[Rfam]
RNA sequence: GCAGUUGAAGUUAUUGCGUUUGUUUGAUACGAUAAGCGGCGCGCUGUUUUGCGCUAUGACAAUAAAUGGUUUUUCGUAAUAGGUAUCUUGGACCCGAAGGCGGAGUUCGGCACCUCCACCGUUUUGCGGGGGUGAUUUAGUUUCGACAGGUAUUAAAGGCUAAACUUUUGUUCGGUUGAGUGAUCCCGUGAUUCACAACACUUUUUAUAAGUGCAAACGACAAUUUUGAAGCUGGUUCUGCUGAAUAUGCAGUAGCUGCCUAGUUUAUAGGUAGUACAGCGCGGUUUGGGGCGGCCGGUCAACAGAACUGCCCCAGU
Numbered sequence: 001g002c003a004g005u006u007g008a009a010g011u012u013a014u015u016g017c018g019u020u021u022g023u024u025u026g027a028u029a030c031g032a033u034a035a036g037c038g039g040c041g042c043g044c045u046g047u048u049u050u051g052c053g054c055u056a057u058g059a060c061a062a063u064a065a066a067u068g069g070u071u072u073u074u075c076g077u078a079a080u081a082g083g084u085a086u087c088u089u090g091g092a093c094c095c096g097a098a099g100g101c102g103g104a105g106u107u108c109g110g111c112a113c114c115u116c117c118a119c120c121g122u123u124u125u126g127c128g129g130g131g132g133u134g135a136u137u138u139a140g141u142u143u144c145g146a147c148a149g150g151u152a153u154u155a156a157a158g159g160c161u162a163a164a165c166u167u168u169u170g171u172u173c174g175g176u177u178g179a180g181u182g183a184u185c186c187c188g189u190g191a192u193u194c195a196c197a198a199c200a201c202u203u204u205u206u207a208u209a210a211g212u213g214c215a216a217a218c219g220a221c222a223a224u225u226u227u228g229a230a231g232c233u234g235g236u237u238c239u240g241c242u243g244a245a246u247a248u249g250c251a252g253u254a255g256c257u258g259c260c261u262a263g264u265u266u267a268u269a270g271g272u273a274g275u276a277c278a279g280c281g282c283g284g285u286u287u288g289g290g291g292c293g294g295c296c297g298g299u300c301a302a303c304a305g306a307a308c309u310g311c312c313c314c315a316g317u
Stems, first nucleotide, its partner, number of pairs: 041054004058172005069165004075159001084152003089148002094110005111134007173188003177200002180196003282297004288314006